Rfam assigns this 241-nucleotide sequence from Clostridium uliginosum to the family "Lysine riboswitch aptamer". The source organism's lineage runs through Bacteria, Clostridia, Eubacteriales, Clostridiaceae and Clostridium. Riboswitches are metabolite binding domains within certain messenger RNAs that serve as precision sensors for their corresponding targets. Allosteric rearrangement of mRNA structure is mediated by ligand binding, and this results in modulation of gene expression. This family includes riboswitches that sense lysine in a number of genes involved in lysine metabolism, including lysC. The base pairs follow the family's consensus structure, which is taken from published work. The match comes from Rfam's covariance-model search (95 bits).
RNA sequence: GACCUGGGUAGAGGUGCUGUAAUUAUAAGUAUCUAUAAGGAAUCGACAGAUUAUGAUUUAUAGAGAAAGGGAUUAUGGCCGAAGGAAUAAGCUAUUUGUAAAAGUUUAUUUCUGGGUAUGUAUAUAAUAUAUGCAUAACUGUCACUUAGGCACAUUCAAAGAAAUAAUAGACUCGAUCUACGACGCAUCUUUAGUAUAUUAUUUUCUUUCAUGUGCCUUAAUGUGGGGAGCUACAAGGUAU
Numbered sequence: 001g002a003c004c005u006g007g008g009u010a011g012a013g014g015u016g017c018u019g020u021a022a023u024u025a026u027a028a029g030u031a032u033c034u035a036u037a038a039g040g041a042a043u044c045g046a047c048a049g050a051u052u053a054u055g056a057u058u059u060a061u062a063g064a065g066a067a068a069g070g071g072a073u074u075a076u077g078g079c080c081g082a083a084g085g086a087a088u089a090a091g092c093u094a095u096u097u098g099u100a101a102a103a104g105u106u107u108a109u110u111u112c113u114g115g116g117u118a119u120g121u122a123u124a125u126a127a128u129a130u131a132u133g134c135a136u137a138a139c140u141g142u143c144a145c146u147u148a149g150g151c152a153c154a155u156u157c158a159a160a161g162a163a164a165u166a167a168u169a170g171a172c173u174c175g176a177u178c179u180a181c182g183a184c185g186c187a188u189c190u191u192u193a194g195u196a197u198a199u200u201a202u203u204u205u206c207u208u209u210c211a212u213g214u215g216c217c218u219u220a221a222u223g224u225g226g227g228g229a230g231c232u233a234c235a236a237g238g239u240a241u
Stems, first nucleotide, its partner, number of pairs: 008234004016079009032064008083113011114140002117137008142226004147221001